Shown here is an 87-nucleotide RNA from Massilia sp. Root351, a member of the family "Glycine riboswitch aptamer". Rfam describes the family as follows. This family represents the bacterial glycine riboswitch. Pairs were carried over by alignment from the consensus structure. It scores 60 bits against the family's covariance model.
[Rfam]
RNA sequence: CAGUCUUGAUCGGGAGAGGGCAAACUCGCGUUGCCGCCGAAGGGGCACUACCCAAAAACUCUCAGGCAAAAGGACCGGUCAAGGGCC
Numbered sequence: 001c002a003g004u005c006u007u008g009a010u011c012g013g014g015a016g017a018g019g020g021c022a023a024a025c026u027c028g029c030g031u032u033g034c035c036g037c038c039g040a041a042g043g044g045g046c047a048c049u050a051c052c053c054a055a056a057a058a059c060u061c062u063c064a065g066g067c068a069a070a071a072g073g074a075c076c077g078g079u080c081a082a083g084g085g086c087c
Base pairs, nucleotide, nucleotide: 006082007081008080009079010078011077012076013075020034021033022032023031036067037066038065039063040062043061044060045059049054